[Rfam]
RNA sequence: CACAAAAUUGACAAGUCCUUGAACCCUAUCAGUAUUGUCUCUGCUGUCCACUUUGUUCAGAGUAGUGCAAUAUUGCUUAUAGGGCUUCAGUUUUUGGGUUAA
Dot-bracket structure: ....................((.(((((((((((((((..(((((...............))))).)))))))))...)))))).))...............
mir-454 microRNA precursor family: a 102-nucleotide RNA from Salmo salar.
Rfam links the family to the GO terms RISC complex and miRNA-mediated post-transcriptional gene silencing.
On this family, see Chen et al., Genes Dev 2005: "The developmental miRNA profiles of zebrafish as determined by small RNA cloning".